[Rfam]
RNA sequence: AUUAUAUAUAGGCAAACCAUUUGAAAAGGUGGGACGCAAAGUUUUGGAGUCUAAAUUGUAUAGUUAUACAACAUGAUAGUCCGACUGCCAUA
Numbered sequence: 001a002u003u004a005u006a007u008a009u010a011g012g013c014a015a016a017c018c019a020u021u022u023g024a025a026a027a028g029g030u031g032g033g034a035c036g037c038a039a040a041g042u043u044u045u046g047g048a049g050u051c052u053a054a055a056u057u058g059u060a061u062a063g064u065u066a067u068a069c070a071a072c073a074u075g076a077u078a079g080u081c082c083g084a085c086u087g088c089c090a091u092a
Base pairs, nucleotide, nucleotide: 012037013036017032018031019030020029021028022027040086041085042084043083046082047081048080049077050076051075056071057070058069059068060067061066
RNA: c-di-GMP-I riboswitch aptamer